[Rfam]
RNA sequence: CCGAUGAGCCGCGACUGGCGCGCAUGGAUGGAAUCAACCAUCGGGAAGCGGCUUCGUGGCACCCCACGUCAAGUUGCCGAGCGCCUGGGCCGUCCGA
Numbered sequence: 001c002c003g004a005u006g007a008g009c010c011g012c013g014a015c016u017g018g019c020g021c022g023c024a025u026g027g028a029u030g031g032a033a034u035c036a037a038c039c040a041u042c043g044g045g046a047a048g049c050g051g052c053u054u055c056g057u058g059g060c061a062c063c064c065c066a067c068g069u070c071a072a073g074u075u076g077c078c079g080a081g082c083g084c085c086u087g088g089g090c091c092g093u094c095c096g097a
Stems, first nucleotide, its partner, number of pairs: 003057001006054007015045002017085005028041004074092001076090003